Guanidine-I riboswitch aptamer: a 121-nucleotide RNA sequence from Salinisphaera shabanensis. Lineage of the source: Bacteria > Gammaproteobacteria > Salinisphaerales > Salinisphaera > Salinisphaera shabanensis.

RNA sequence: CCAAUAGAUGGCUAGGGUUCCGAUCGGCGCGAAAAACAAGCGUCGGUGACUGGUCCGAGAGCGAUCGACCUGACCGGCAGGGCCGGCGCAGGUUACACGGCGGGACAAAAGCCCGGGAGGU
Numbered sequence: 001c002c003a004a005u006a007g008a009u010g011g012c013u014a015g016g017g018u019u020c021c022g023a024u025c026g027g028c029g030c031g032a033a034a035a036a037c038a039a040g041c042g043u044c045g046g047u048g049a050c051u052g053g054u055c056c057g058a059g060a061g062c063g064a065u066c067g068a069c070c071u072g073a074c075c076g077g078c079a080g081g082g083c084c085g086g087c088g089c090a091g092g093u094u095a096c097a098c099g100g101c102g103g104g105a106c107a108a109a110a111g112c113c114c115g116g117g118a119g120g121u
Stems, first nucleotide, its partner, number of pairs: 007066003011062002015056002020053002022050001023047008067094006096116001098119001102114003
Its family is annotated with regulation of gene expression in the Gene Ontology. Rfam describes the family as follows. This family represents a conserved RNA structure found upstream of the ykkC and yxkD genes in Bacillus subtilis and related genes in other bacteria.